[Rfam]
Background:
This 108-nucleotide sequence from Beijerinckia sp. 28-YEA-48 belongs to the Rfam family "EcpR1". A reference for the family is Schluter et al. (2010), "A genome-wide survey of sRNAs in the symbiotic nitrogen-fixing alpha-proteobacterium Sinorhizobium meliloti", BMC Genomics. Gene Ontology terms of the family: mRNA binding, negative regulation of cell cycle and regulation of translation in response to stress. By type it is a small RNA. A search with the family's covariance model found it, with a score of 91 bits. The base pairs follow the family's consensus structure, which was predicted with WAR.
RNA sequence: ACACCCUACGGGUUGCUCAGGUCCGCCGCAUCUCCUGGGUCCGUGGGGCAGGCCGGCCGGGCGCGAUUCAGGAGUGGCCUCCUCGGAGUUGCACUGGCCGGCCACCUC
Numbered sequence: 001a002c003a004c005c006c007u008a009c010g011g012g013u014u015g016c017u018c019a020g021g022u023c024c025g026c027c028g029c030a031u032c033u034c035c036u037g038g039g040u041c042c043g044u045g046g047g048g049c050a051g052g053c054c055g056g057c058c059g060g061g062c063g064c065g066a067u068u069c070a071g072g073a074g075u076g077g078c079c080u081c082c083u084c085g086g087a088g089u090u091g092c093a094c095u096g097g098c099c100g101g102c103c104a105c106c107u108c
Stems, first nucleotide, its partner, number of pairs: 004048007016039006051103010